[Rfam]
Nucleotides: 085
Stems, first nucleotide, its partner, number of pairs: 001030008009021003032074006044068007
Number, partner (000 for none) and nucleotide at each position: 001030g002029c003028c004027g005026g006025g007024c008023u009021g010020c011019g012000c013000g014000g015000u016000c017000u018000a019011c020010g021009c022000a023008g024007g025006c026005u027004c028003g029002g030001c031000a032074a033073u034072c035071u036070g037069u038000a039000c040000g041000c042000a043000c044068g045067c046066c047065g048064c049063c050062c051000g052000c053000u054000c055000c056000g057000g058000c059000a060000c061000g062050g063049g064048g065047c066046g067045g068044c069037a070036c071035a072034g073033a074032u075000u076000a077000u078000a079000a080000g081000g082000a083000g084000g085000a
A member of the RNA family "aspS RNA", 85 nucleotides long. The family's consensus secondary structure is taken from published work.